RNA: Small nucleolar RNA Z279/snoR105/snoR108
RNA sequence: GGGAAAUGAGGAGUGGUCAAUACUCGCUAUUUUAUGCGGGAAGAGCGUUUCGCUCAGCCUGUUACGACAUUUGAACGUUCUCAUUUGUUUUACCAUCUGAUCCU
Numbered sequence: 001g002g003g004a005a006a007u008g009a010g011g012a013g014u015g016g017u018c019a020a021u022a023c024u025c026g027c028u029a030u031u032u033u034a035u036g037c038g039g040g041a042a043g044a045g046c047g048u049u050u051c052g053c054u055c056a057g058c059c060u061g062u063u064a065c066g067a068c069a070u071u072u073g074a075a076c077g078u079u080c081u082c083a084u085u086u087g088u089u090u091u092a093c094c095a096u097c098u099g100a101u102c103c104u
Base pairs, nucleotide, nucleotide: 001104002103003102004101014095015094016093017092023040024039025038026037027036042081043080044079045078046077047076048075049074059073061071